[Rfam]
RNA sequence: GAAAGUAAAGGGGCAAUGCCGGUUUCUUGUUCUGGCAAGAAGUUGGUUAUUGCUCCUUUACUA
Numbered sequence: 001g002a003a004a005g006u007a008a009a010g011g012g013g014c015a016a017u018g019c020c021g022g023u024u025u026c027u028u029g030u031u032c033u034g035g036c037a038a039g040a041a042g043u044u045g046g047u048u049a050u051u052g053c054u055c056c057u058u059u060a061c062u063a
Base pairs, nucleotide, nucleotide: 007059008058009057010056011055012054013053014052015051016050017049018048021044022043024041025040026039027038028037029036
RNA: Plastid-psbA-4 3UTR RNA